[Rfam]
RNA sequence: GUCUUCCGAUGUAACUGGCGACAAGUGGAAUGAACCACGGUGGAGCAUCGGAAGGUAUCGGCCGGUCGCCUGGGCAAGAGCA
Number, nucleotide and partner (000 for none) at each position: 001g000002u000003c054004u053005u052006c051007c050008g049009a048010u047011g046012u045013a000014a000015c042016u000017g070018g069019c068020g067021a066022c000023a000024a000025g038026u037027g036028g035029a000030a000031u000032g000033a000034a000035c028036c027037a026038c025039g000040g000041u000042g015043g000044a000045g012046c011047a010048u009049c008050g007051g006052a005053a004054g003055g000056u000057a000058u000059c000060g000061g075062c074063c073064g000065g000066u021067c020068g019069c018070c017071u000072g000073g063074g062075c061076a000077a000078g000079a000080g000081c000082a000
RNA: ZMP/ZTP riboswitch aptamer (pfl RNA motif)